This 80-nucleotide RNA sequence belongs to the Rfam family "chrB-a RNA". The family's RNA type in Rfam is cis-regulatory element.

RNA sequence: GGCGUGGGGGGCGUGCGAUCCCCCCGUGAGGCGACAGCCCAAGCAUCGCGUCCCGUGGAUUUUGCGAGGGCGCAGCCAUG
Number, nucleotide and partner (000 for none) at each position: 001g000002g000003c000004g000005u026006g025007g024008g023009g022010g021011g000012c000013g000014u000015g000016c000017g000018a000019u000020c000021c010022c009023c008024c007025c006026g005027u000028g000029a000030g000031g000032c000033g000034a000035c000036a000037g000038c000039c000040c000041a000042a000043g000044c000045a000046u000047c000048g073049c072050g071051u070052c069053c068054c000055g000056u000057g000058g000059a000060u000061u000062u000063u000064g000065c000066g000067a000068g053069g052070g051071c050072g049073c048074a000075g000076c000077c000078a000079u000080g000
The family's consensus secondary structure is taken from published work. It is one of the family's seed sequences.